The family of this 66-nucleotide sequence from Capra hircus is "Selenocysteine insertion sequence 1".
About the family: The incorporation of selenocysteine into a protein sequence is directed by an in-frame UGA codon (usually a stop codon) within the coding region of the mRNA. Selenoprotein mRNAs contain a conserved secondary structure in the 3' UTR that is required for the distinction of UGA stop from UGA selenocysteine. The selenocysteine insertion sequence (SECIS) is around 60 nt in length and adopts a hairpin structure which is sufficiently well-defined and conserved to act as a computational screen for selenoprotein genes.
The match comes from Rfam's covariance-model search (37 bits).
Lineage of the source: Eukaryota > Bilateria > Amniota > Boreoeutheria > Capra.
[Rfam]
RNA sequence: UUUGCAUUAAUGAAGACUACACAGAAAACCUUCCUGAGGAUUUGUGUAGACCUGAUAUUUAGCAGA
Numbered sequence: 001u002u003u004g005c006a007u008u009a010a011u012g013a014a015g016a017c018u019a020c021a022c023a024g025a026a027a028a029c030c031u032u033c034c035u036g037a038g039g040a041u042u043u044g045u046g047u048a049g050a051c052c053u054g055a056u057a058u059u060u061a062g063c064a065g066a
Base pairs, nucleotide, nucleotide: 001066002065003064004063005062015052017049018048019047020046021045022044023043024042030039031038032037